This 76-nucleotide RNA from Hymenochirus boettgeri belongs to the Rfam family "mir-202 microRNA precursor family". The base pairs follow the family's consensus structure, which was predicted with RNAalifold. The source organism's lineage runs through Eukaryota, Batrachia, Pipoidea, Pipinae and Hymenochirus. A reference for the family is Chen et al. (2005), "The developmental miRNA profiles of zebrafish as determined by small RNA cloning", Genes Dev.
Nucleotides: 076
Stems, first nucleotide, its partner, number of pairs: 010067006017060003021055003025051008
Number, partner (000 for none) and nucleotide at each position: 001000u002000u003000g004000u005000c006000c007000c008000u009000u010067u011066u012065u013064c014063c015062u016000a017060u018059g019058c020000a021055u022054a023053u024000a025051c026050u027049u028048c029047u030046u031045u032044g033000a034000u035000a036000a037000a038000u039000a040000a041000u042000g043000g044032u045031a046030a047029a048028g049027a050026g051025g052000c053023a054022u055021a056000a057000g058019g059018c060017a061000c062015g063014g064013g065012a066011a067010a068000a069000u070000g071000g072000u073000g074000c075000u076000c